[Rfam]
RNA sequence: CCGUGCAGGUGGGGGGUUAGCGGUCCCCUGCAUCCAAAACCCGCUAUACGUGGAGCCGAUGGGCCUCCCGAGAGGACGGGGAGACGGAAUCGGCCUGGGAGCCCCGGGCGAUGACGGUCGAGCCCUCUGCGACGCAUACCGGUGAACCCCGCGAGGCCCGGAAGGGAGCAACGGUAAGCUGGUCCCUGCGGGUGAUAGAGGACCCCUUGGCCUGAGCUCGGUCCCCAGGAGCGCCCGUCGAACUGGCCCCGACGGAGGCCCGCACGG
Numbered sequence: 001c002c003g004u005g006c007a008g009g010u011g012g013g014g015g016g017u018u019a020g021c022g023g024u025c026c027c028c029u030g031c032a033u034c035c036a037a038a039a040c041c042c043g044c045u046a047u048a049c050g051u052g053g054a055g056c057c058g059a060u061g062g063g064c065c066u067c068c069c070g071a072g073a074g075g076a077c078g079g080g081g082a083g084a085c086g087g088a089a090u091c092g093g094c095c096u097g098g099g100a101g102c103c104c105c106g107g108g109c110g111a112u113g114a115c116g117g118u119c120g121a122g123c124c125c126u127c128u129g130c131g132a133c134g135c136a137u138a139c140c141g142g143u144g145a146a147c148c149c150c151g152c153g154a155g156g157c158c159c160g161g162a163a164g165g166g167a168g169c170a171a172c173g174g175u176a177a178g179c180u181g182g183u184c185c186c187u188g189c190g191g192g193u194g195a196u197a198g199a200g201g202a203c204c205c206c207u208u209g210g211c212c213u214g215a216g217c218u219c220g221g222u223c224c225c226c227a228g229g230a231g232c233g234c235c236c237g238u239c240g241a242a243c244u245g246g247c248c249c250c251g252a253c254g255g256a257g258g259c260c261c262g263c264a265c266g267g
Base pairs, nucleotide, nucleotide: 001267002266003265004264005263006262008057009056010055011029012028013027014026015025016024017023018022033054034053035052036051063259064258065257066256067255068254072250074248075247078244079243083239084238085237086236087235091233092232094229095228096227097226098225099224102221103220107218108217109216116212117211118210119209120208121207122206124201125200126199127198128197129196130192133190134189135188136187138183139182140181141180142179143178149174150173151172157166158165159164

Shown here is a 267-nucleotide RNA from Bipolaricaulis sanaerobius, a member of the family "Bacterial large signal recognition particle RNA". It is annotated as a non-coding RNA gene. A search with the family's covariance model found it, with a score of 114 bits. Its Rfam clan is "SRP clan". Lineage of the source: Bacteria > Bacteria candidate phyla > Candidatus Bipolaricaulota > Bipolaricaulales (SeqCode) > Bipolaricaulis (SeqCode). About the family: The signal recognition particle (SRP) is a universally conserved ribonucleoprotein involved in the co-translational targeting of proteins to membranes.